[Rfam]
RNA sequence: GCACUGGCUUAGCUCAGUGGUUACUUCCUCUGAUACUUUGUCCUCUCGAUGAUUUUCAGUUCUUCCCUCAUCUGAGGGAUCAAACCACGGGCGCUGUCCAGUGUCUUU
Numbered sequence: 001g002c003a004c005u006g007g008c009u010u011a012g013c014u015c016a017g018u019g020g021u022u023a024c025u026u027c028c029u030c031u032g033a034u035a036c037u038u039u040g041u042c043c044u045c046u047c048g049a050u051g052a053u054u055u056u057c058a059g060u061u062c063u064u065c066c067c068u069c070a071u072c073u074g075a076g077g078g079a080u081c082a083a084a085c086c087a088c089g090g091g092c093g094c095u096g097u098c099c100a101g102u103g104u105c106u107u108u
Base pairs, nucleotide, nucleotide: 002103003102004101005100006099007098012092013091014090015089017088018087019086020085026079027078028077029076
Vault RNA: a 108-nucleotide RNA sequence from Salarias fasciatus. Rfam describes the family as follows. This family of RNAs are found as part of the enigmatic vault ribonucleoprotein complex. The complex consists of a major vault protein (MVP), two minor vault proteins (VPARP and TEP1), and several small untranslated RNA molecules. It has been suggested that the vault complex is involved in drug resistance. The organism belongs to Salarias, within Eukaryota.